Background:
Shown here is an 84-nucleotide RNA from Nelumbo nucifera, a member of the family "Small nucleolar RNA Z221/R21b". On this family, see Chen et al., Nucleic Acids Res 2003: "The high diversity of snoRNAs in plants: identification and comparative study of 120 snoRNA genes from Oryza sativa". Rfam 15.1 lists 588 matches to the family in 222 species. Rfam classes the family as a C/D-box small nucleolar RNA. Pairs were carried over by alignment from the consensus structure, which was predicted with WAR. It scores 61 bits against the family's covariance model.
[Rfam]
RNA sequence: GGACUGUGAUGAGGAUUGAGUAUGUCAUGCACCACUCUGAUUUCAUUCAGUGCUGAUAAUCGACAAACCCACUUAUCUGAGUCC
Numbered sequence: 001g002g003a004c005u006g007u008g009a010u011g012a013g014g015a016u017u018g019a020g021u022a023u024g025u026c027a028u029g030c031a032c033c034a035c036u037c038u039g040a041u042u043u044c045a046u047u048c049a050g051u052g053c054u055g056a057u058a059a060u061c062g063a064c065a066a067a068c069c070c071a072c073u074u075a076u077c078u079g080a081g082u083c084c
Base pairs, nucleotide, nucleotide: 001084002083003082004081